Shown here is a 261-nucleotide RNA sequence from Eubacterium sp. CAG:603, a member of the family "Bacterial large signal recognition particle RNA".
About the family: The signal recognition particle (SRP) is a universally conserved ribonucleoprotein involved in the co-translational targeting of proteins to membranes.
The base pairs follow the family's consensus structure, which is taken from published work.
NCBI's taxonomy places the organism under Bacteria, Bacillota, Eubacteriales, Eubacteriaceae, Eubacterium.
Its Rfam clan is "SRP clan".

[Rfam]
RNA sequence: CCGUGCAGCCGGGGAGUUAGCGGUGCCCUGUACCUGCAAUCCGCUCUAGCAGGGGUGAUGUUUUGCCGCGGAUAUAUCUUGUAGGGCUGCCCUUUACAAGUGGCGAUGACGUUUAGGUCUUACGCAACAGGAAUUUAUGAAUCGUGUCAGGUCAGGAAUGAAGCAGCACUAAGUAAAACCUUCUGUGUGCCGUAAGGUAGCCUGGACUGAGUUAACUAUAGAGGUAACGCUUAUGAUCUGUAUACAAAGCAAAACGCACGG
Numbered sequence: 001c002c003g004u005g006c007a008g009c010c011g012g013g014g015a016g017u018u019a020g021c022g023g024u025g026c027c028c029u030g031u032a033c034c035u036g037c038a039a040u041c042c043g044c045u046c047u048a049g050c051a052g053g054g055g056u057g058a059u060g061u062u063u064u065g066c067c068g069c070g071g072a073u074a075u076a077u078c079u080u081g082u083a084g085g086g087c088u089g090c091c092c093u094u095u096a097c098a099a100g101u102g103g104c105g106a107u108g109a110c111g112u113u114u115a116g117g118u119c120u121u122a123c124g125c126a127a128c129a130g131g132a133a134u135u136u137a138u139g140a141a142u143c144g145u146g147u148c149a150g151g152u153c154a155g156g157a158a159u160g161a162a163g164c165a166g167c168a169c170u171a172a173g174u175a176a177a178a179c180c181u182u183c184u185g186u187g188u189g190c191c192g193u194a195a196g197g198u199a200g201c202c203u204g205g206a207c208u209g210a211g212u213u214a215a216c217u218a219u220a221g222a223g224g225u226a227a228c229g230c231u232u233a234u235g236a237u238c239u240g241u242a243u244a245c246a247a248a249g250c251a252a253a254a255c256g257c258a259c260g261g
Stems, first nucleotide, its partner, number of pairs: 001261006008056003011029004016024003033053005061254006070245001072243003076239001079236007088226002092223005100216002102213003111207008119196006125187002128185005134177005144169004152161003